[Rfam]
RNA sequence: GUGGAAGCUCCAUCUAUAAAUGGAUAAUACUUUUGUAUUCAUUUAUAUGUAUAUGAAUUAUUGAAUAUUGAAGGUAGCAAUCCCACCAAUAUCUUGUUCUAAGAACAAGAUAUUGGUGGGAUUGCUAC
Numbered sequence: 001g002u003g004g005a006a007g008c009u010c011c012a013u014c015u016a017u018a019a020a021u022g023g024a025u026a027a028u029a030c031u032u033u034u035g036u037a038u039u040c041a042u043u044u045a046u047a048u049g050u051a052u053a054u055g056a057a058u059u060a061u062u063g064a065a066u067a068u069u070g071a072a073g074g075u076a077g078c079a080a081u082c083c084c085a086c087c088a089a090u091a092u093c094u095u096g097u098u099c100u101a102a103g104a105a106c107a108a109g110a111u112a113u114u115g116g117u118g119g120g121a122u123u124g125c126u127a128c
Base pairs, nucleotide, nucleotide: 009024010023011022012021013020074128075127076126077125078124079123080122081121082120083119087115088114089113091111092110093109094108095107
The record is a 128-nucleotide RNA sequence from Epipactis helleborine, which matches "Plastid-psbA-1 3UTR RNA" in Rfam. A reference for the family is Richter et al. (2023), "Retrograde signaling in plants: A critical review focusing on the GUN pathway and beyond", Plant Commun. Plastid psbA-1 is a non-coding RNA (ncRNA) present in plastids. It was identified in inverted repeat sequences in the 3 prime untranslate region (3UTR) of photosystem II quinone-binding protein (psbA).